Twister_sister_ribozyme: an 83-nucleotide sequence.
RNA sequence: UUGACCCGCAAGGCCGACGGUACCCGCCGCCGCUGGUGCAAGCCCAGCCGCCCCCACACGGGGCGGGCGCUCAUGGGUAACAA
Numbered sequence: 001u002u003g004a005c006c007c008g009c010a011a012g013g014c015c016g017a018c019g020g021u022a023c024c025c026g027c028c029g030c031c032g033c034u035g036g037u038g039c040a041a042g043c044c045c046a047g048c049c050g051c052c053c054c055c056a057c058a059c060g061g062g063g064c065g066g067g068c069g070c071u072c073a074u075g076g077g078u079a080a081c082a083a
Base pairs, nucleotide, nucleotide: 004078005077006076007075013068014067015066018029019028020027032048033047034046035045049065050064051063052062053061054060
Rfam's curators put it in the seed alignment.